[Rfam]
RNA sequence: GAAUGAGGUCAUGAUUAGGUUAUUUCCCUGUUGUUUUGAUCAUCGAAAUGAUGGCAUAAGUGUAUUAGCUCUAGCUGAUCAUUC
Number, nucleotide and partner (000 for none) at each position: 001g000002a083003a082004u081005g080006a000007g000008g000009u000010c000011a000012u000013g000014a000015u000016u000017a000018g000019g000020u000021u000022a000023u000024u000025u000026c000027c000028c000029u000030g000031u000032u000033g000034u000035u000036u000037u000038g055039a000040u000041c000042a000043u054044c053045g000046a000047a000048a000049u000050g000051a000052u000053g044054g043055c038056a000057u000058a000059a000060g000061u000062g000063u000064a000065u000066u000067a000068g000069c000070u000071c000072u000073a000074g000075c000076u000077g000078a000079u000080c005081a004082u003083u002084c000
RNA: Small nucleolar RNA Z102/R77